[Rfam]
RNA sequence: AGGUCACAAGGUUGAGGCCAUAGCAGAAGCGCUCACGGUGCAGCCAUGUCAGACUCCAAACAAAUCUGCCAAUUAUGCU
Numbered sequence: 001a002g003g004u005c006a007c008a009a010g011g012u013u014g015a016g017g018c019c020a021u022a023g024c025a026g027a028a029g030c031g032c033u034c035a036c037g038g039u040g041c042a043g044c045c046a047u048g049u050c051a052g053a054c055u056c057c058a059a060a061c062a063a064a065u066c067u068g069c070c071a072a073u074u075a076u077g078c079u
Stems, first nucleotide, its partner, number of pairs: 013046001016045003022079004027074002029041003050068004055063001
The record is a 79-nucleotide sequence from Alligator sinensis, which matches "Mammalian CPEB3 ribozyme" in Rfam. The source organism's lineage runs through Eukaryota, Opisthokonta, Teleostomi, Sauria and Alligator.